Burkholderia RNA 7 (anti-hemB): an 81-nucleotide sequence from Cupriavidus sp. HPC(L). A reference for the family is Weinberg et al. (2007), "Identification of 22 candidate structured RNAs in bacteria using the CMfinder comparative genomics pipeline", Nucleic Acids Res. Taxonomically the source falls in Cupriavidus (Bacteria, Pseudomonadota, Betaproteobacteria, Burkholderiales). Its family is annotated with bacterial biofilm matrix and protein binding in the Gene Ontology. It scores 72 bits against the family's covariance model. This RNA motif was identified by computational search in b-proteobacteria Burkholderia.
RNA sequence: UCCCCCGCUACUCCUCCCUGAGCGGGUACCCGCCUCGCGGCGGGAAUAUUCCCCCCCGUUGCUUGCAGCGGGGUUUUUUUU
Numbered sequence: 001u002c003c004c005c006c007g008c009u010a011c012u013c014c015u016c017c018c019u020g021a022g023c024g025g026g027u028a029c030c031c032g033c034c035u036c037g038c039g040g041c042g043g044g045a046a047u048a049u050u051c052c053c054c055c056c057c058g059u060u061g062c063u064u065g066c067a068g069c070g071g072g073g074u075u076u077u078u079u080u081u
Base pairs, nucleotide, nucleotide: 004026005025006024007023008022009021029044030043031042032041033040034039054073055072056071057070058069059068060067061066